[Rfam]
RNA sequence: CGAUUGGGUAGAGGCUGCAUUGCUUAUGAGUCACACACGCGAGAUUGACACCGAUGACCGUGCGUAAAAGGAAGCUUUGCCGAAGUUUGGUAGGAUUGUCGAAAUCUAUCAGGCUGGGGUUGUUCCGAAUAGGGAUAACACUGUCAUACAUCUUUGAACAUGUAUGAUGAGCUACAGGUCGU
Numbered sequence: 001c002g003a004u005u006g007g008g009u010a011g012a013g014g015c016u017g018c019a020u021u022g023c024u025u026a027u028g029a030g031u032c033a034c035a036c037a038c039g040c041g042a043g044a045u046u047g048a049c050a051c052c053g054a055u056g057a058c059c060g061u062g063c064g065u066a067a068a069a070g071g072a073a074g075c076u077u078u079g080c081c082g083a084a085g086u087u088u089g090g091u092a093g094g095a096u097u098g099u100c101g102a103a104a105u106c107u108a109u110c111a112g113g114c115u116g117g118g119g120u121u122g123u124u125c126c127g128a129a130u131a132g133g134g135a136u137a138a139c140a141c142u143g144u145c146a147u148a149c150a151u152c153u154u155u156g157a158a159c160a161u162g163u164a165u166g167a168u169g170a171g172c173u174a175c176a177g178g179u180c181g182u
Stems, first nucleotide, its partner, number of pairs: 008175004017080003022075004033065002036062004084115011116142002119139008144167007
Shown here is a 182-nucleotide sequence from Sporosarcina sp. JAI121, a member of the family "Lysine riboswitch aptamer". Lineage of the source: Bacteria > Bacillota > Bacilli > Caryophanaceae > Sporosarcina. Riboswitches are metabolite binding domains within certain messenger RNAs that serve as precision sensors for their corresponding targets. A reference for the family is Sudarsan et al. (2003), "An mRNA structure in bacteria that controls gene expression by binding lysine", Genes Dev.